RNA sequence: UGAGCCGGGCAGGCAGUUGCGCGCAGGUUACUGCGUGAGGAAAGUCCGAGCAGCACAGAGCAGGAUAACGGCUAACGGCCGCCGGGGGCGACCCUAGGGAAAGUGCAACAGAAAUAAACCGCCGCUUUUGCGGUAAGGAUGGAAAGGCGAGGUAAGAGCUCACCGAGGGGGUGGAGACAUUCCCUGCCAUGUAAACCCUAUCCGCUGCAACAUCGACUGAAGGGUUGUUUGCUCGACACAAAACUUCGAAGGAUGGCUGGAGCGCACGGGCAACCGUGCGUCGAGAUAGAUAAUUGCCCAAGACAGAACUCGGCUUACGCCCGACUCAUCGU
Numbered sequence: 001u002g003a004g005c006c007g008g009g010c011a012g013g014c015a016g017u018u019g020c021g022c023g024c025a026g027g028u029u030a031c032u033g034c035g036u037g038a039g040g041a042a043a044g045u046c047c048g049a050g051c052a053g054c055a056c057a058g059a060g061c062a063g064g065a066u067a068a069c070g071g072c073u074a075a076c077g078g079c080c081g082c083c084g085g086g087g088g089c090g091a092c093c094c095u096a097g098g099g100a101a102a103g104u105g106c107a108a109c110a111g112a113a114a115u116a117a118a119c120c121g122c123c124g125c126u127u128u129u130g131c132g133g134u135a136a137g138g139a140u141g142g143a144a145a146g147g148c149g150a151g152g153u154a155a156g157a158g159c160u161c162a163c164c165g166a167g168g169g170g171g172u173g174g175a176g177a178c179a180u181u182c183c184c185u186g187c188c189a190u191g192u193a194a195a196c197c198c199u200a201u202c203c204g205c206u207g208c209a210a211c212a213u214c215g216a217c218u219g220a221a222g223g224g225u226u227g228u229u230u231g232c233u234c235g236a237c238a239c240a241a242a243a244c245u246u247c248g249a250a251g252g253a254u255g256g257c258u259g260g261a262g263c264g265c266a267c268g269g270g271c272a273a274c275c276g277u278g279c280g281u282c283g284a285g286a287u288a289g290a291u292a293a294u295u296g297c298c299c300a301a302g303a304c305a306g307a308a309c310u311c312g313g314c315u316u317a318c319g320c321c322c323g324a325c326u327c328a329u330c331g332u
Stems, first nucleotide, its partner, number of pairs: 001328004006323005012298007020037007042316003046313005051207004058234004063203005069081004083097001084095004098198002103196002105192003119138002121134005146164002149161003165187001166185008211255004221246003226238004262281008

The record is a 332-nucleotide sequence from Clostridium sp. CAG:217, which matches "Bacterial RNase P class A" in Rfam. The match comes from Rfam's covariance-model search (270 bits). The source organism's lineage runs through Bacteria, Bacillota, Clostridia, Eubacteriales and Clostridium.